The family of this 117-nucleotide sequence from Dyella sp. AD56 is "SAM riboswitch aptamer (S box leader)".
RNA sequence: UACUCAUCGAGACCGGCGGAGGGACAGGCCCUUUGAAGCCGGGGCAACCUGCGGAAUUUUCCGCGACGGUGCCAAUUCCUGCGGUAACGCCUUAGGGCGCACGCCGCGAGAUGAGGG
Number, nucleotide and partner (000 for none) at each position: 001u117002a000003c115004u114005c113006a112007u111008c110009g000010a000011g000012a000013c042014c041015g040016g039017c038018g000019g000020a000021g031022g030023g029024a000025c081026a080027g079028g078029c023030c022031c021032u000033u000034u000035g000036a000037a000038g017039c016040c015041g014042g013043g073044g072045c071046a070047a000048c069049c068050u065051g064052c063053g062054g000055a000056a000057u000058u000059u000060u000061c000062c053063g052064c051065g050066a000067c000068g049069g048070u046071g045072c044073c043074a000075a000076u000077u109078c028079c027080u026081g025082c106083g105084g104085u103086a000087a000088c000089g000090c000091c000092u000093u000094a000095g000096g000097g000098c000099g000100c000101a000102c000103g085104c084105c083106g082107c000108g000109a077110g008111a007112u006113g005114a004115g003116g000117g001
Gene Ontology term of the family: regulation of gene expression. It scores 84 bits against the family's covariance model.